[Rfam]
RNA: ASpks TB sRNA
RNA sequence: CUUCAGCGAGCCGAUCAGCACCGGUUCCCCGGCGCGGUCCUGCCCGUACGUGGCCAGCAGCGCGGUGGCUUC
Numbered sequence: 001c002u003u004c005a006g007c008g009a010g011c012c013g014a015u016c017a018g019c020a021c022c023g024g025u026u027c028c029c030c031g032g033c034g035c036g037g038u039c040c041u042g043c044c045c046g047u048a049c050g051u052g053g054c055c056a057g058c059a060g061c062g063c064g065g066u067g068g069c070u071u072c
Base pairs, nucleotide, nucleotide: 014026016024028068029067035062036061040057041056042055044053045052046051